[Rfam]
RNA sequence: AAAUAUAUAGGUGAUGGAGUUCACCUUUAACUAUUGCAAUUUUGCAAUUAAUGACUCCUACUUGGAC
Numbered sequence: 001a002a003a004u005a006u007a008u009a010g011g012u013g014a015u016g017g018a019g020u021u022c023a024c025c026u027u028u029a030a031c032u033a034u035u036g037c038a039a040u041u042u043u044g045c046a047a048u049u050a051a052u053g054a055c056u057c058c059u060a061c062u063u064g065g066a067c
Stems, first nucleotide, its partner, number of pairs: 010025004016058006033048006
RNA: Fluoride riboswitch aptamer (crcB RNA motif)
Organism: Alkalithermobacter paradoxus